[Rfam]
RNA sequence: UAUUUGCUAUGAGGACUCCUAUUAGGACGGUAUCUUAAGGGUAUGGCUUAGCUCAACCCUUGUGAUUAUACCAAAACUGAAUAUGGUUUCUGAGCAAAUC
Numbered sequence: 001u002a003u004u005u006g007c008u009a010u011g012a013g014g015a016c017u018c019c020u021a022u023u024a025g026g027a028c029g030g031u032a033u034c035u036u037a038a039g040g041g042u043a044u045g046g047c048u049u050a051g052c053u054c055a056a057c058c059c060u061u062g063u064g065a066u067u068a069u070a071c072c073a074a075a076a077c078u079g080a081a082u083a084u085g086g087u088u089u090c091u092g093a094g095c096a097a098a099u100c
Stems, first nucleotide, its partner, number of pairs: 002099006038061004042056001